The family of this 76-nucleotide RNA is "dfrA-dnaX RNA". The family's consensus secondary structure is taken from published work. By type it is a small RNA.
[Rfam]
RNA sequence: AUGCCUUAUGAUAAAGCUGUAAUUAUUUCAUCAUAAUAAUCAAAAUUUAAUUAUCAAAACGAAAUUAUGAUAUAAU
Numbered sequence: 001a002u003g004c005c006u007u008a009u010g011a012u013a014a015a016g017c018u019g020u021a022a023u024u025a026u027u028u029c030a031u032c033a034u035a036a037u038a039a040u041c042a043a044a045a046u047u048u049a050a051u052u053a054u055c056a057a058a059a060c061g062a063a064a065u066u067a068u069g070a071u072a073u074a075a076u
Base pairs, nucleotide, nucleotide: 030071031070032069033068034067035066036065037064